[Rfam]
RNA: Small nucleolar RNA Z157/R69/R10
Organism: Oryza meridionalis
RNA sequence: UUGGUAGUGGUGAUGAACAAUUUUUAUUUGGACUAGAGUUUCUGAUACUGCUACUUUGUGGUAGUUGAAGACCAAACCCUUGGCUGUCUGAGCUUCCAG
Numbered sequence: 001u002u003g004g005u006a007g008u009g010g011u012g013a014u015g016a017a018c019a020a021u022u023u024u025u026a027u028u029u030g031g032a033c034u035a036g037a038g039u040u041u042c043u044g045a046u047a048c049u050g051c052u053a054c055u056u057u058g059u060g061g062u063a064g065u066u067g068a069a070g071a072c073c074a075a076a077c078c079c080u081u082g083g084c085u086g087u088c089u090g091a092g093c094u095u096c097c098a099g
Base pairs, nucleotide, nucleotide: 001099002098003097004096006094007093008092039070040069041068042067046063047062048061049060050059051058